The family of this 86-nucleotide sequence from Triticum turgidum is "MIR1120/MIR1122 microRNA precursor family". Gene Ontology terms of the family: miRNA-mediated post-transcriptional gene silencing and RISC complex. Rfam 15.1 lists 44,765 matches to the family in 8 species. On this family, see Yao et al., Genome Biol 2007: "Cloning and characterization of microRNAs from wheat (Triticum aestivum L.)". The family's consensus secondary structure was predicted with RNAalifold. A search with the family's covariance model found it, with a score of 87 bits.
[Rfam]
RNA sequence: GUACUCCCUCCGUCCCGAAUAUAAGAACGUUUUUGACACUUGUGUAGUGUCAAAAAUGUUCUUUUAUUAUGGGACAGAGGGAGUAG
Number, nucleotide and partner (000 for none) at each position: 001g000002u000003a084004c083005u082006c000007c080008c079009u078010c077011c000012g000013u074014c073015c072016c071017g070018a068019a067020u066021a065022u000023a063024a062025g061026a060027a059028c058029g057030u056031u055032u054033u053034u052035g051036a050037c049038a048039c047040u046041u000042g000043u000044g000045u000046a040047g039048u038049g037050u036051c035052a034053a033054a032055a031056a030057u029058g028059u027060u026061c025062u024063u023064u000065u021066a020067u019068u018069a000070u017071g016072g015073g014074a013075c000076a000077g010078a009079g008080g007081g000082a005083g004084u003085a000086g000